[Rfam]
RNA sequence: CCUGGGGAUGAAUCCCCAGGCUGUAUUCCUCCGCCCUUUCAGGGCG
Numbered sequence: 001c002c003u004g005g006g007g008a009u010g011a012a013u014c015c016c017c018a019g020g021c022u023g024u025a026u027u028c029c030u031c032c033g034c035c036c037u038u039u040c041a042g043g044g045c046g
Stems, first nucleotide, its partner, number of pairs: 001020008033045005

A member of the RNA family "Acido-Lenti-1 RNA" from Candidatus Vecturithrix granuli, 46 nucleotides long. The source organism's lineage runs through Bacteria, Candidatus Moduliflexota, Candidatus Vecturitrichia, Candidatus Vecturitrichaceae and Candidatus Vecturithrix.